[Rfam]
This 66-nucleotide RNA sequence from Dromas ardeola belongs to the Rfam family "Small nucleolar RNA SNORD24". The family's consensus secondary structure was predicted with PFOLD. The match comes from Rfam's covariance-model search (47 bits).

RNA sequence: UGCAAAUGAUGCAGACAUUUUGCCACCUAAAUACAUUUGAUGACAACCACCAAGAUCGCUGAUGCA
Numbered sequence: 001u002g003c004a005a006a007u008g009a010u011g012c013a014g015a016c017a018u019u020u021u022g023c024c025a026c027c028u029a030a031a032u033a034c035a036u037u038u039g040a041u042g043a044c045a046a047c048c049a050c051c052a053a054g055a056u057c058g059c060u061g062a063u064g065c066a
Stems, first nucleotide, its partner, number of pairs: 001066004

Source information
By type it is a C/D-box small nucleolar RNA. Rfam 15.1 lists 2,843 matches to the family in 1,188 species.